[Rfam]
RNA sequence: AGGGAGAGCCCGUGAAGCUCAGGAGGGAUAGCGCCGCUGAUCUUUAUCCCUGCAGCCGAUAAACAUAGAUCUCGAUUGGCGCUAUCCAUCCUGAGUUUCAUAGGUUUUUUUC
Numbered sequence: 001a002g003g004g005a006g007a008g009c010c011c012g013u014g015a016a017g018c019u020c021a022g023g024a025g026g027g028a029u030a031g032c033g034c035c036g037c038u039g040a041u042c043u044u045u046a047u048c049c050c051u052g053c054a055g056c057c058g059a060u061a062a063a064c065a066u067a068g069a070u071c072u073c074g075a076u077u078g079g080c081g082c083u084a085u086c087c088a089u090c091c092u093g094a095g096u097u098u099c100a101u102a103g104g105u106u107u108u109u110u111u112c
Stems, first nucleotide, its partner, number of pairs: 010103001016097009026087010
RNA: MIR390 microRNA precursor family
Organism: Salvia splendens